[Rfam]
RNA sequence: UCCGUCGCGAGACGGAAUCUGAAGGAAGCCGCAGGCAAAAUCCCGGCCCGACGAACAGAAAUCGCAUAAGAGGCAGUCCCACUCGGGCGAGAAGGCACGUAACUUCAAAGCCCUAAACCAUCCAGAGGGUGUGGCUGUAAAUGCGGCGGGUAUAUGGGAUGAAGGUCACGCGCA
Numbered sequence: 001u002c003c004g005u006c007g008c009g010a011g012a013c014g015g016a017a018u019c020u021g022a023a024g025g026a027a028g029c030c031g032c033a034g035g036c037a038a039a040a041u042c043c044c045g046g047c048c049c050g051a052c053g054a055a056c057a058g059a060a061a062u063c064g065c066a067u068a069a070g071a072g073g074c075a076g077u078c079c080c081a082c083u084c085g086g087g088c089g090a091g092a093a094g095g096c097a098c099g100u101a102a103c104u105u106c107a108a109a110g111c112c113c114u115a116a117a118c119c120a121u122c123c124a125g126a127g128g129g130u131g132u133g134g135c136u137g138u139a140a141a142u143g144c145g146g147c148g149g150g151u152a153u154a155u156g157g158g159a160u161g162a163a164g165g166u167c168a169c170g171c172g173c174a
Stems, first nucleotide, its partner, number of pairs: 001016006030172003035166002040160006046151005062146006073138003077134002080131004085113004091106004
Dot-bracket structure: ((((((....)))))).............(((..((...(((((((((((...........((((((.....(((.((.((((.((((..((((........))))...))))..............)))).)).)))..)))))))))))...))))))....))...)))..
RNA: Group II catalytic intron D1-D4-3